[Rfam]
RNA sequence: GCCCCUGGCGUGGGGCGUCGAGGCGCCGCCACGGCCGCUGUGAAAACGCCCCCUCCAAGGGGCGCACA
Numbered sequence: 001g002c003c004c005c006u007g008g009c010g011u012g013g014g015g016c017g018u019c020g021a022g023g024c025g026c027c028g029c030c031a032c033g034g035c036c037g038c039u040g041u042g043a044a045a046a047c048g049c050c051c052c053c054u055c056c057a058a059g060g061g062g063c064g065c066a067c068a
Stems, first nucleotide, its partner, number of pairs: 001063006012052007024037001025035004